[Rfam]
RNA sequence: UUUGAAAAAGGCAAACCUGCUUGCAAAACAGGGACGCAAAGCCACAGAUCUAAGGCAUAACUUUGAUAGCUGGGCUACCAAAA
Numbered sequence: 001u002u003u004g005a006a007a008a009a010g011g012c013a014a015a016c017c018u019g020c021u022u023g024c025a026a027a028a029c030a031g032g033g034a035c036g037c038a039a040a041g042c043c044a045c046a047g048a049u050c051u052a053a054g055g056c057a058u059a060a061c062u063u064u065g066a067u068a069g070c071u072g073g074g075c076u077a078c079c080a081a082a083a
Stems, first nucleotide, its partner, number of pairs: 001083001003080002011037002016032004021028002035069001040076004045072003048067003
Source information:
Shown here is an 83-nucleotide RNA sequence from Schinkia azotoformans, a member of the family "c-di-GMP-I-GGC riboswitch aptamer". A reference for the family is Weinberg et al. (2017), "Bioinformatic analysis of riboswitch structures uncovers variant classes with altered ligand specificity", Proc Natl Acad Sci U S A. It scores 65 bits against the family's covariance model. NCBI's taxonomy places the organism under Bacteria, Bacilli, Caryophanales, Schinkia, Schinkia azotoformans.